[Rfam]
RNA sequence: CUAUGACAUGAAUUUGUCAUGGCGGAAGGAG
Numbered sequence: 001c002u003a004u005g006a007c008a009u010g011a012a013u014u015u016g017u018c019a020u021g022g023c024g025g026a027a028g029g030a031g
Base pairs, nucleotide, nucleotide: 001022002021003020004019005018006017007016008015
A member of the RNA family "L31-Firmicutes ribosomal protein leader", 31 nucleotides long. The family's RNA type in Rfam is cis-regulatory leader. Rfam's curators put it in the seed alignment. Its Rfam clan is "Ribosomal Protein L31 Leader clan". Pairs were carried over by alignment from the consensus structure, which is taken from published work.